[Rfam]
RNA sequence: UGACGGGACCCCGCACAAGCAGCGGAGCGUGUGGUUUAAUUCGAUGCAACACGAAGAACCUUACCAGGGCUUGACAUGCAGGUGGUAGGGAUCCGAAAGGUGACCGACCCUUCGGGGAGCCUGCACAGGUGCUGCAUGGCUGUCGUCAGCUCGUGUCGUGAGAUGUUCGGUUAAGUCCGCCAACGAGCGCAACCCUCGCCGCGUGUUACAUGUGUCACGCGGGACCGCCGGCCUUAAGCCGGAGGAAGGUGAGGAUGACGUCAAGUCAGCAUGGCCUUUAUGUCCUGGGCUACACACACGCUACAAUGGUCGGUACAAUGGGUCGCGAAGCCGCGAGGCGGAGCCAAUCCCCCAAAGCCGGCCUCAGUUCAGAUUGCAGGCUGCAACCCGCCUGCAUGAAGACGGAGUUGCUAGUAACCGCAGGUCAGCCAUACUGCGGUGAAUACGUUCCCGGGGUUUGUACACACCGCCCGUCACGUCAUGGGAGCUGGCAACACCUGAAGCCGGUAGCCUAACCCGCAAGGGAGGGCGCCGUCGAAGGUGGGGCUGGUGACUGGGACGAAGUCGUAACAAGGUAGGUGUACCGGAAGGUGCGCCUGG
Numbered sequence: 001u002g003a004c005g006g007g008a009c010c011c012c013g014c015a016c017a018a019g020c021a022g023c024g025g026a027g028c029g030u031g032u033g034g035u036u037u038a039a040u041u042c043g044a045u046g047c048a049a050c051a052c053g054a055a056g057a058a059c060c061u062u063a064c065c066a067g068g069g070c071u072u073g074a075c076a077u078g079c080a081g082g083u084g085g086u087a088g089g090g091a092u093c094c095g096a097a098a099g100g101u102g103a104c105c106g107a108c109c110c111u112u113c114g115g116g117g118a119g120c121c122u123g124c125a126c127a128g129g130u131g132c133u134g135c136a137u138g139g140c141u142g143u144c145g146u147c148a149g150c151u152c153g154u155g156u157c158g159u160g161a162g163a164u165g166u167u168c169g170g171u172u173a174a175g176u177c178c179g180c181c182a183a184c185g186a187g188c189g190c191a192a193c194c195c196u197c198g199c200c201g202c203g204u205g206u207u208a209c210a211u212g213u214g215u216c217a218c219g220c221g222g223g224a225c226c227g228c229c230g231g232c233c234u235u236a237a238g239c240c241g242g243a244g245g246a247a248g249g250u251g252a253g254g255a256u257g258a259c260g261u262c263a264a265g266u267c268a269g270c271a272u273g274g275c276c277u278u279u280a281u282g283u284c285c286u287g288g289g290c291u292a293c294a295c296a297c298a299c300g301c302u303a304c305a306a307u308g309g310u311c312g313g314u315a316c317a318a319u320g321g322g323u324c325g326c327g328a329a330g331c332c333g334c335g336a337g338g339c340g341g342a343g344c345c346a347a348u349c350c351c352c353c354a355a356a357g358c359c360g361g362c363c364u365c366a367g368u369u370c371a372g373a374u375u376g377c378a379g380g381c382u383g384c385a386a387c388c389c390g391c392c393u394g395c396a397u398g399a400a401g402a403c404g405g406a407g408u409u410g411c412u413a414g415u416a417a418c419c420g421c422a423g424g425u426c427a428g429c430c431a432u433a434c435u436g437c438g439g440u441g442a443a444u445a446c447g448u449u450c451c452c453g454g455g456g457u458u459u460g461u462a463c464a465c466a467c468c469g470c471c472c473g474u475c476a477c478g479u480c481a482u483g484g485g486a487g488c489u490g491g492c493a494a495c496a497c498c499u500g501a502a503g504c505c506g507g508u509a510g511c512c513u514a515a516c517c518c519g520c521a522a523g524g525g526a527g528g529g530c531g532c533c534g535u536c537g538a539a540g541g542u543g544g545g546g547c548u549g550g551u552g553a554c555u556g557g558g559a560c561g562a563a564g565u566c567g568u569a570a571c572a573a574g575g576u577a578g579g580u581g582u583a584c585c586g587g588a589a590g591g592u593g594c595g596c597c598u599g600g
Base pairs, nucleotide, nucleotide: 001464002463003461004460005459007458008457009456010455011454012453013452015448016447019411020410021409022408023407024304026302027301028300029299030298031297032296033295034293035292040055041054042053043052064288065287066286067285068284069283070282077125078124079123080122081121082120083119088105089104093100094099108117109116110115128277129276131275132274133273134272137271138270139266140265141264142262144260145259149188150187151186152185153184154183155164156163157162168179169178170177194254195253196252197251199222200221201220202219203218204217205216209214225245226244228242229241230240231239232238308363309362310361311360312359313358314357320351321350322349325344326343330339331338332337370401375396376395377394378393379392380391381390417440418439419438420437421436422435423434467574469571472567473566477561478560479559480558482556483555484554487551488550489549490548491547492546495543496542497541498540503536505534506533507532508531510530511529512528513527516525517524576599577598578597579596580595581594582593583592584591585590
The family of this 600-nucleotide part of an RNA from Thermanaerothrix daxensis is "Bacterial small subunit ribosomal RNA". Gene Ontology terms of the family: structural constituent of ribosome and ribosome. The base pairs follow the family's consensus structure, which is taken from published work. The organism belongs to Thermanaerothrix, within Bacteria.